[Rfam]
RNA sequence: GCUGAUCAAUGAUGAGUCAGUUUACUAGAGACUGUUGGAUGAAACUAGCGGAUAUGGGACUGAGAUCGCU
Numbered sequence: 001g002c003u004g005a006u007c008a009a010u011g012a013u014g015a016g017u018c019a020g021u022u023u024a025c026u027a028g029a030g031a032c033u034g035u036u037g038g039a040u041g042a043a044a045c046u047a048g049c050g051g052a053u054a055u056g057g058g059a060c061u062g063a064g065a066u067c068g069c070u
Base pairs, nucleotide, nucleotide: 001069002068004067005066
The family of this 70-nucleotide sequence from Gadus morhua is "Small nucleolar RNA SNORD99". The source organism's lineage runs through Eukaryota, Paracanthopterygii, Zeiogadaria, Gadariae and Gadus. Its family is annotated with nucleolus and RNA processing in the Gene Ontology. It is annotated as a C/D-box small nucleolar RNA. A reference for the family is Galardi et al. (2002), "Purified box C/D snoRNPs are able to reproduce site-specific 2'-O-methylation of target RNA in vitro", Mol Cell Biol. A search with the family's covariance model found it, with a score of 60 bits.